A member of the RNA family "Small nucleolar RNA R16" from Centaurea solstitialis, 90 nucleotides long. The match comes from Rfam's covariance-model search (64 bits). The family's RNA type in Rfam is C/D-box small nucleolar RNA. The literature on the family includes a 2002 paper in Curr Biol by Marker et al., "Experimental RNomics: identification of 140 candidates for small non-messenger RNAs in the plant Arabidopsis thaliana". The family has 18 seed sequences and 884 matches in Rfam 15.1. The family's consensus secondary structure was predicted with PFOLD.
[Rfam]
RNA sequence: AACGGCAAAUGAAGAAAUUUCAGUUUUUAUGCUUAACUCACUGAUUUAACAAUGGUGACAACAAAACUCCGCUUAUUAUCUGAUGCCGAU
Numbered sequence: 001a002a003c004g005g006c007a008a009a010u011g012a013a014g015a016a017a018u019u020u021c022a023g024u025u026u027u028u029a030u031g032c033u034u035a036a037c038u039c040a041c042u043g044a045u046u047u048a049a050c051a052a053u054g055g056u057g058a059c060a061a062c063a064a065a066a067c068u069c070c071g072c073u074u075a076u077u078a079u080c081u082g083a084u085g086c087c088g089a090u
Base pairs, nucleotide, nucleotide: 003088004087005086006085007084